RNA sequence: GGCCGGGCCACCCCUCCCCAACGAGGGGCUGCCAUCUGAAAGGGUGGUUUUG
Numbered sequence: 001g002g003c004c005g006g007g008c009c010a011c012c013c014c015u016c017c018c019c020a021a022c023g024a025g026g027g028g029c030u031g032c033c034a035u036c037u038g039a040a041a042g043g044g045u046g047g048u049u050u051u052g
Stems, first nucleotide, its partner, number of pairs: 011028006032047006
Dot-bracket structure: ..........((((((......))))))...((((((....)))))).....

This 52-nucleotide RNA sequence from Methylopila jiangsuensis belongs to the Rfam family "serC leader". Pairs were carried over by alignment from the consensus structure. About the family: This family is a putative regulatory RNA structure that is found upstream of the serC-serA operon in some alpha-proteobacteria. The final stem of the structure overlaps the ribosome binding site of the serC reading frame. Gene Ontology term of the family: regulation of gene expression.